[Rfam]
RNA sequence: CAGUGAUUUCAGCUCUUUUAGUAUUUGUCUAGUAGGUUUCCCGCUUGCUCGGGAAGCCUCU
Number, nucleotide and partner (000 for none) at each position: 001c000002a000003g000004u000005g000006a000007u000008u000009u000010c000011a000012g000013c000014u000015c000016u000017u000018u000019u000020a000021g000022u000023a000024u000025u000026u000027g000028u000029c000030u000031a000032g000033u000034a000035g058036g057037u056038u055039u054040c053041c052042c051043g050044c000045u000046u000047g000048c000049u000050c043051g042052g041053g040054a039055a038056g037057c036058c035059u000060c000061u000